RNA: RT-5 RNA
RNA sequence: CUGCGCCUGCAAAGGAGGCAGCCUACCCGCAUUGAUGCUUUGCAGGCAGCAGGGUAAGGUAUCCUCUGGUGAUCCGCAAUUUUGCGGAUUCAAAAUCCUCCC
Numbered sequence: 001c002u003g004c005g006c007c008u009g010c011a012a013a014g015g016a017g018g019c020a021g022c023c024u025a026c027c028c029g030c031a032u033u034g035a036u037g038c039u040u041u042g043c044a045g046g047c048a049g050c051a052g053g054g055u056a057a058g059g060u061a062u063c064c065u066c067u068g069g070u071g072a073u074c075c076g077c078a079a080u081u082u083u084g085c086g087g088a089u090u091c092a093a094a095a096u097c098c099u100c101c102c
Stems, first nucleotide, its partner, number of pairs: 005047007014067002017064002021060004025055004036051004073088006